Rfam assigns this 144-nucleotide sequence from Neorhizobium alkalisoli to the family "FMN riboswitch aptamer (RFN element)". Rfam 15.1 lists 6,230 matches to the family in 5,120 species. The source organism's lineage runs through Bacteria, Pseudomonadati, Alphaproteobacteria, Rhizobiaceae and Neorhizobium.
[Rfam]
RNA sequence: UUCUGUUCUCAGGGCGGGGUGAAACUCCCCACCGGCGGUAUCGGGACUUGUCCCGGAGCCCGCGAGCGCUUCCCCAAAAGGAAGGUCAGCAGAUCCGGUGCGAUGCCGGAGCCGACGGUAUAGUCCGGAUGGAAGAGACCAACC
Numbered sequence: 001u002u003c004u005g006u007u008c009u010c011a012g013g014g015c016g017g018g019g020u021g022a023a024a025c026u027c028c029c030c031a032c033c034g035g036c037g038g039u040a041u042c043g044g045g046a047c048u049u050g051u052c053c054c055g056g057a058g059c060c061c062g063c064g065a066g067c068g069c070u071u072c073c074c075c076a077a078a079a080g081g082a083a084g085g086u087c088a089g090c091a092g093a094u095c096c097g098g099u100g101c102g103a104u105g106c107c108g109g110a111g112c113c114g115a116c117g118g119u120a121u122a123g124u125c126c127g128g129a130u131g132g133a134a135g136a137g138a139c140c141a142a143c144c
Stems, first nucleotide, its partner, number of pairs: 004141002007138004017029003031124002033114002035063004058112002066090002094110005116127003

Description
About the family: The RFN element is a highly conserved domain that is found frequently in the 5'-untranslated regions of prokaryotic mRNAs that encode for flavin mononucleotide (FMN) biosynthesis and transport proteins. The match comes from Rfam's covariance-model search (114 bits). The family's consensus secondary structure is taken from published work.